RNA sequence: CUGCAUGCCAGUAGACCUUAUCUGGCUCUUCUAAUAACCAGAUGAGGGGGAUGGUUCAUGCUACAAAAAAACUGGGGUUGCUGUAGCUUGUGAUCAGCCUCAGGGUGGCUGAUUGAACUGCAAUACUCCAACAUAA
Numbered sequence: 001c002u003g004c005a006u007g008c009c010a011g012u013a014g015a016c017c018u019u020a021u022c023u024g025g026c027u028c029u030u031c032u033a034a035u036a037a038c039c040a041g042a043u044g045a046g047g048g049g050g051a052u053g054g055u056u057c058a059u060g061c062u063a064c065a066a067a068a069a070a071a072c073u074g075g076g077g078u079u080g081c082u083g084u085a086g087c088u089u090g091u092g093a094u095c096a097g098c099c100u101c102a103g104g105g106u107g108g109c110u111g112a113u114u115g116a117a118c119u120g121c122a123a124u125a126c127u128c129c130a131a132c133a134u135a136a
Stems, first nucleotide, its partner, number of pairs: 003061005016047009074129004079125001082122003094112005
This 136-nucleotide sequence from Urocolius indicus belongs to the Rfam family "Small nucleolar RNA SNORA58". On this family, see Huttenhofer et al., EMBO J 2001: "RNomics: an experimental approach that identifies 201 candidates for novel, small, non-messenger RNAs in mouse". Its family is annotated with RNA processing and nucleolus in the Gene Ontology. The family's RNA type in Rfam is H/ACA-box small nucleolar RNA. Rfam's curators write: ACA52 is a member of the H/ACA class of snoRNA that guide the sites of modification of uridines to pseudouridines.